[Rfam]
This 152-nucleotide sequence from Lathyrus oleraceus belongs to the Rfam family "U4 spliceosomal RNA". Gene Ontology terms of the family: U4 snRNP and spliceosomal tri-snRNP complex assembly. A search with the family's covariance model found it, with a score of 73 bits. The family's consensus secondary structure is taken from published work. The source organism's lineage runs through Eukaryota, eudicotyledons, fabids, Hologalegina and Lathyrus. From the family's description: U4 small nuclear RNA (U4 snRNA) is a component of the major U2-dependent spliceosome.
RNA sequence: AUCUUUGCACUUGGGGUAAUGACACAGCUAGUGAGGUAUUAACUGAGGUCCAUCUAUUGCUGGUUGAAAACUACUUUCAAACCCCCUCCGAGCCUAGAUUAAAACCCAGGCCUUGAAGAAUUUCUAGAAGGGCUCCCUUUUUGAGUAAAGCC
Number, nucleotide and partner (000 for none) at each position: 001a000002u000003c000004u000005u000006u000007g000008c000009a000010c000011u000012u000013g000014g000015g000016g000017u000018a000019a000020u000021g054022a053023c000024a000025c000026a000027g049028c048029u047030a000031g000032u000033g000034a000035g044036g043037u042038a000039u000040u000041a000042a037043c036044u035045g000046a000047g029048g028049u027050c000051c000052a000053u022054c021055u000056a000057u000058u000059g000060c000061u000062g000063g000064u000065u000066g000067a000068a000069a000070a000071c000072u000073a000074c000075u000076u000077u000078c000079a000080a000081a000082c000083c000084c000085c000086c118087u117088c115089c000090g113091a000092g111093c110094c109095u108096a000097g106098a000099u104100u000101a000102a000103a000104a099105c000106c097107c000108a095109g094110g093111c092112c000113u090114u000115g088116a000117a087118g086119a000120a000121u000122u000123u000124c000125u000126a000127g000128a000129a000130g000131g152132g151133c150134u149135c000136c000137c000138u000139u000140u000141u000142u000143g000144a000145g000146u000147a000148a000149a134150g133151c132152c131